A member of the RNA family "c-di-AMP riboswitch aptamer (ydaO/yuaA leader)" from Aneurinibacillus danicus, 146 nucleotides long.

RNA sequence: CUGCAUAUUUGGCCUAAUCCUGGAGCAUCCGGGAGCGGAGGACCCAUUCUUUUGGGGUUAAUCCUUAUAUUAUUAAGGAGGGAUGAAAAUUUCUCUUUCGCCAUCCUACCCGUCAGCUAACUUCGUCGGCUAAAGCGAAGGAGGUC
Numbered sequence: 001c002u003g004c005a006u007a008u009u010u011g012g013c014c015u016a017a018u019c020c021u022g023g024a025g026c027a028u029c030c031g032g033g034a035g036c037g038g039a040g041g042a043c044c045c046a047u048u049c050u051u052u053u054g055g056g057g058u059u060a061a062u063c064c065u066u067a068u069a070u071u072a073u074u075a076a077g078g079a080g081g082g083a084u085g086a087a088a089a090u091u092u093c094u095c096u097u098u099c100g101c102c103a104u105c106c107u108a109c110c111c112g113u114c115a116g117c118u119a120a121c122u123u124c125g126u127c128g129g130c131u132a133a134a135g136c137g138a139a140g141g142a143g144g145u146c
Stems, first nucleotide, its partner, number of pairs: 011131004018034007035126006045054002055111003063078004081106004
A search with the family's covariance model found it, with a score of 81 bits. The source organism's lineage runs through Bacteria, Bacillati, Bacilli, Caryophanales and Aneurinibacillus.